[Rfam]
This 138-nucleotide sequence from Nannospalax galili belongs to the Rfam family "Small nucleolar RNA SNORA4". The family's consensus secondary structure was predicted with PFOLD. NCBI's taxonomy places the organism under Eukaryota, Craniata, Rodentia, Muroidea, Nannospalax. By type it is an H/ACA-box small nucleolar RNA.
RNA sequence: GUACCAAAAGCUAAUUUUGGGGGAGGUUUUUUUUAAUAACCUUUACCAACUUGGGCUAUUUGGCAGAGCGAUUAAGACCACACUCCACAGUGGGCUAUACCAACUAGUAUGGUUCAUUACUAUCUUGUGGCCUACACU
Numbered sequence: 001g002u003a004c005c006a007a008a009a010g011c012u013a014a015u016u017u018u019g020g021g022g023g024a025g026g027u028u029u030u031u032u033u034u035a036a037u038a039a040c041c042u043u044u045a046c047c048a049a050c051u052u053g054g055g056c057u058a059u060u061u062g063g064c065a066g067a068g069c070g071a072u073u074a075a076g077a078c079c080a081c082a083c084u085c086c087a088c089a090g091u092g093g094g095c096u097a098u099a100c101c102a103a104c105u106a107g108u109a110u111g112g113u114u115c116a117u118u119a120c121u122a123u124c125u126u127g128u129g130g131c132c133u134a135c136a137c138u
Stems, first nucleotide, its partner, number of pairs: 004063005012058002015055003019051002021047002024044001025041004075133002078130005089118012